A member of the RNA family "DUF3800-VII RNA", 87 nucleotides long. By type it is a small RNA.
[Rfam]
Nucleotides: 087
Base pairs, nucleotide, nucleotide: 001082002081003080004079005078006077007076011074013073014072015071016070022069023068024067025066027064028044029043030042031041032040033039047056048055049054
Number, partner (000 for none) and nucleotide at each position: 001082g002081g003080c004079a005078g006077g007076c008000a009000u010000g011074c012000g013073c014072g015071g016070g017000a018000g019000a020000a021000a022069c023068c024067u025066c026000u027064g028044g029043u030042c031041g032040c033039u034000c035000u036000g037000g038000c039033a040032g041031c042030g043029g044028c045000a046000g047056c048055c049054c050000u051000u052000c053000g054049g055048g056047g057000u058000g059000g060000g061000a062000u063000c064027c065000u066025g067024a068023g069022g070016c071015c072014c073013g074011g075000g076007g077006c078005c079004u080003g081002c082001c083000c084000u085000a086000g087000u